[Rfam]
RNA sequence: UUCCCUGGGCGUGGUGGGGGCUAGCCCGGGCCGGACUCACAGCCCAGGCUAGCCCCCACCACUCCCAGGGAA
Dot-bracket structure: (((((((((.((...(((((((((((.(((.(.........)))).)))))))))))...)).)))))))))

Annotation:
The family of this 72-nucleotide RNA sequence from Sphenodon punctatus is "Epstein-Barr virus stable intronic sequence RNA 2". Rfam classes the family as a non-coding RNA gene. It scores 42 bits against the family's covariance model. Rfam 15.1 lists 171 matches to the family in 47 species.